Vault RNA: a 90-nucleotide RNA sequence from Araneus ventricosus. It is annotated as a non-coding RNA gene.
[Rfam]
RNA sequence: GCGCGGGUUUGGUCUAGUGGUUACUUCGUUAUCAUGCAGAUUCCAACAUCUUCUCGGAGAAGACAACCAUUGACGCUGUCCUGCGUUUCU
Numbered sequence: 001g002c003g004c005g006g007g008u009u010u011g012g013u014c015u016a017g018u019g020g021u022u023a024c025u026u027c028g029u030u031a032u033c034a035u036g037c038a039g040a041u042u043c044c045a046a047c048a049u050c051u052u053c054u055c056g057g058a059g060a061a062g063a064c065a066a067c068c069a070u071u072g073a074c075g076c077u078g079u080c081c082u083g084c085g086u087u088u089c090u
Stems, first nucleotide, its partner, number of pairs: 002085006012074003017070004026063002029060001
Rfam describes the family as follows. This family of RNAs are found as part of the enigmatic vault ribonucleoprotein complex. The complex consists of a major vault protein (MVP), two minor vault proteins (VPARP and TEP1), and several small untranslated RNA molecules. It has been suggested that the vault complex is involved in drug resistance.